[Rfam]
RNA sequence: CUGUAUGAUGAACAAACCUACCCAAGCAUAGUUCACCUGAAAUCUUCGGAUUGUUGAACGACAACCUUUAUCCAUCUUUCUUUUAUCUGAUA
Numbered sequence: 001c002u003g004u005a006u007g008a009u010g011a012a013c014a015a016a017c018c019u020a021c022c023c024a025a026g027c028a029u030a031g032u033u034c035a036c037c038u039g040a041a042a043u044c045u046u047c048g049g050a051u052u053g054u055u056g057a058a059c060g061a062c063a064a065c066c067u068u069u070a071u072c073c074a075u076c077u078u079u080c081u082u083u084u085a086u087c088u089g090a091u092a
Base pairs, nucleotide, nucleotide: 003017004016006014007013031059032058033057034056035055041052042051043050044049
The family of this 92-nucleotide RNA sequence from Penicillium decumbens is "A. fumigatus snoRNA Afu_263". Gene Ontology terms of the family: RNA processing and nucleolus. The literature on the family includes a 2008 paper in Nucleic Acids Res by Jochl et al., "Small ncRNA transcriptome analysis from Aspergillus fumigatus suggests a novel mechanism for regulation of protein synthesis". Taxonomically the source falls in Penicillium (Eukaryota, Eurotiomycetes, Eurotiales, Aspergillaceae). The match comes from Rfam's covariance-model search (71 bits).